[Rfam]
RNA sequence: AUACAUAACACAAAUAUUUUUGCUAUUGGUUUGCAGGCUAAUAGCACUCCUUUCUAACUACCUAAGGUAGUCUGCGAU
Numbered sequence: 001a002u003a004c005a006u007a008a009c010a011c012a013a014a015u016a017u018u019u020u021u022g023c024u025a026u027u028g029g030u031u032u033g034c035a036g037g038c039u040a041a042u043a044g045c046a047c048u049c050c051u052u053u054c055u056a057a058c059u060a061c062c063u064a065a066g067g068u069a070g071u072c073u074g075c076g077a078u
Stems, first nucleotide, its partner, number of pairs: 022045009032076005058070005
The record is a 78-nucleotide sequence from Prochlorococcus marinus, which matches "Cyanobacterial ribosomal protein S1 leader" in Rfam.
The sequence is in the family's curated seed alignment.
Pairs were carried over by alignment from the consensus structure, which is taken from published work.
The literature on the family includes a 2007 paper in Nucleic Acids Res by Weinberg et al., "Identification of 22 candidate structured RNAs in bacteria using the CMfinder comparative genomics pipeline".
The organism belongs to Prochlorococcus marinus, within Bacteria.
About the family: cyano-S1 is a ncRNA recognized in the 5-prime region of genes encoding 30S ribosomal protein S1, it has been proposed as an cis regulation element.